[Rfam]
RNA: Acido-Lenti-1 RNA
Organism: Roseimaritima ulvae
RNA sequence: CCCAGGACUGGCGUCCUGGGCUAUCGCCUAUCGUCGCUUCGCGACU
Number, nucleotide and partner (000 for none) at each position: 001c020002c019003c018004a017005g016006g015007a014008c013009u000010g000011g000012c000013g008014u007015c006016c005017u004018g003019g002020g001021c000022u000023a000024u000025c000026g000027c000028c000029u000030a000031u000032c000033g045034u044035c043036g042037c041038u000039u000040c000041g037042c036043g035044a034045c033046u000